RNA sequence: CCUGGAACAAUUGAUGACUAAUUUUUUCCCCAGCUUAUCGACAAUGCUGUUAUUAUAUAGCCAGAACUUGCUGAUGUUCCACU
Numbered sequence: 001c002c003u004g005g006a007a008c009a010a011u012u013g014a015u016g017a018c019u020a021a022u023u024u025u026u027u028c029c030c031c032a033g034c035u036u037a038u039c040g041a042c043a044a045u046g047c048u049g050u051u052a053u054u055a056u057a058u059a060g061c062c063a064g065a066a067c068u069u070g071c072u073g074a075u076g077u078u079c080c081a082c083u
Stems, first nucleotide, its partner, number of pairs: 003081007